Purine riboswitch aptamer: a 102-nucleotide RNA from Culicoidibacter larvae.

RNA sequence: AUUAAAUAUUAGAAAAUGAGUCGUAUAAGUGCAGUAAUAAGGUCUGCACGUUUCUACCUAUCUACCGUAAAUUGAUUGGCUAUGGCGCAUAAUUAAACUCCA
Numbered sequence: 001a002u003u004a005a006a007u008a009u010u011a012g013a014a015a016a017u018g019a020g021u022c023g024u025a026u027a028a029g030u031g032c033a034g035u036a037a038u039a040a041g042g043u044c045u046g047c048a049c050g051u052u053u054c055u056a057c058c059u060a061u062c063u064a065c066c067g068u069a070a071a072u073u074g075a076u077u078g079g080c081u082a083u084g085g086c087g088c089a090u091a092a093u094u095a096a097a098c099u100c101c102a
Base pairs, nucleotide, nucleotide: 018088020086021085022084023083024082025081029049030048031047032046033045034044058078060076061075062074064072
The base pairs follow the family's consensus structure, which is taken from published work. Riboswitches are metabolite binding domains within certain messenger RNAs that serve as precision sensors for their corresponding targets.